[Rfam]
RNA: Nuclear RNase P
Organism: Onchocerca volvulus
RNA sequence: GUGGUGAUAAGGUAACAUAAGGAGUAACCCACGGGCAUUUAAUUGCUCAUUGGUACUGCUCCUGGGAAGGUCUGAGAUCAGGUCUCGAUCCAAUUUGGGUGAUCGUAUCCUCUAGCGGGGGAACGACGUGAAACGCCGUGGUACCGUACCAGAAACUUGUCCUCGGUAUCAAACAUCCUGAAGUACAAGACGGUUUAUACCUUACCUUUCAUAGGUAAGAAACCUGAUACGUUCGUGGUGAUGGUACUGAGUUUGAACCACGGUACUAGUACUAGCUGUGCUGAGUGCGAUUGUUACACGCAUAUAAAUGUGAACUCAAUUCAGACUACUCUCUCGCCAC
Number, nucleotide and partner (000 for none) at each position: 001g340002u339003g338004g337005u000006g000007a334008u000009a332010a000011g000012g000013u000014a000015a295016c000017a000018u000019a000020a063021g062022g061023a060024g059025u000026a000027a000028c000029c000030c000031a000032c000033g048034g047035g046036c045037a044038u000039u000040u000041a000042a000043u000044u037045g036046c035047u034048c033049a000050u000051u000052g000053g000054u000055a000056c000057u000058g000059c024060u023061c022062c021063u020064g000065g000066g000067a000068a000069g000070g000071u000072c324073u323074g322075a321076g320077a000078u000079c000080a000081g000082g000083u000084c000085u000086c000087g000088a000089u000090c000091c000092a000093a000094u000095u000096u000097g000098g273099g272100u271101g270102a000103u000104c000105g000106u000107a000108u122109c121110c120111u119112c118113u000114a000115g000116c000117g000118g112119g111120g110121g109122a108123a139124c138125g137126a000127c135128g134129u000130g000131a000132a000133a000134c128135g127136c000137c125138g124139u123140g267141g266142u265143a264144c263145c262146g261147u000148a000149c000150c000151a000152g000153a000154a000155a000156c000157u000158u000159g000160u000161c000162c251163u250164c249165g248166g247167u246168a245169u244170c243171a242172a000173a000174c000175a000176u000177c000178c000179u000180g000181a000182a000183g000184u000185a000186c000187a000188a000189g000190a000191c000192g000193g000194u000195u000196u000197a000198u000199a000200c000201c000202u000203u000204a000205c000206c000207u000208u000209u000210c000211a000212u000213a000214g000215g000216u000217a000218a000219g000220a000221a000222a000223c000224c000225u000226g000227a000228u000229a000230c000231g000232u000233u000234c000235g000236u000237g000238g000239u000240g000241a000242u171243g170244g169245u168246a167247c166248u165249g164250a163251g162252u000253u000254u000255g000256a000257a000258c000259c000260a000261c146262g145263g144264u143265a142266c141267u140268a000269g000270u101271a100272c099273u098274a000275g000276c000277u000278g000279u000280g000281c000282u000283g000284a000285g000286u000287g000288c000289g000290a000291u000292u000293g000294u000295u015296a000297c000298a000299c312300g311301c310302a309303u308304a000305u000306a000307a000308a303309u302310g301311u300312g299313a000314a000315c000316u000317c000318a000319a000320u076321u075322c074323a073324g072325a000326c000327u000328a000329c000330u000331c000332u009333c000334u007335c000336g000337c004338c003339a002340c001